[Rfam]
RNA sequence: GGAACCUGUCUGCGAAGGUCUGGCCAACCAGCAGUAGCGAGUCUUGGGUGGCUGUCAGCAAUGGCAGCUGCUAAGUGCAGACAGCGGGCAGGUAGGGCCGCAAUGCGAUUGAGACUCGAAAUGUUACUGAUCAGAGAGCUGACGUUUUAACUGGUACGGAAGCAACAUCAAGCAGUUCGUAAAAGGUGGGAAUAGUCAGACACUGCAGAGUCAGAGAGCC
Numbered sequence: 001g002g003a004a005c006c007u008g009u010c011u012g013c014g015a016a017g018g019u020c021u022g023g024c025c026a027a028c029c030a031g032c033a034g035u036a037g038c039g040a041g042u043c044u045u046g047g048g049u050g051g052c053u054g055u056c057a058g059c060a061a062u063g064g065c066a067g068c069u070g071c072u073a074a075g076u077g078c079a080g081a082c083a084g085c086g087g088g089c090a091g092g093u094a095g096g097g098c099c100g101c102a103a104u105g106c107g108a109u110u111g112a113g114a115c116u117c118g119a120a121a122u123g124u125u126a127c128u129g130a131u132c133a134g135a136g137a138g139c140u141g142a143c144g145u146u147u148u149a150a151c152u153g154g155u156a157c158g159g160a161a162g163c164a165a166c167a168u169c170a171a172g173c174a175g176u177u178c179g180u181a182a183a184a185g186g187u188g189g190g191a192a193u194a195g196u197c198a199g200a201c202a203c204u205g206c207a208g209a210g211u212c213a214g215a216g217a218g219c220c
Stems, first nucleotide, its partner, number of pairs: 010034004017029003021189001023187002037085002041082004045077002047072011110214001111212001113211001116208001118206001132205003136201001138163003143158003168200002172196002175193004
RNA: Group II catalytic intron D1-D4-6